[Rfam]
RNA sequence: GCUUUCUGAACAGCUGGUGUAGCUGCAGAGAACCCAGCUUCCUUCAUAAAGC
Numbered sequence: 001g002c003u004u005u006c007u008g009a010a011c012a013g014c015u016g017g018u019g020u021a022g023c024u025g026c027a028g029a030g031a032a033c034c035c036a037g038c039u040u041c042c043u044u045c046a047u048a049a050a051g052c
Base pairs, nucleotide, nucleotide: 001052002051003050004049005048007046008045009044012039013038014037015036016035017034019026020025
The record is a 52-nucleotide RNA sequence from Castor canadensis, which matches "MAT2A 3'UTR stem loop C" in Rfam.
A reference for the family is Parker et al. (2011), "New families of human regulatory RNA structures identified by comparative analysis of vertebrate genomes", Genome Res.
NCBI's taxonomy places the organism under Eukaryota, Opisthokonta, Sarcopterygii, Amniota, Castor.
By type it is a cis-regulatory element.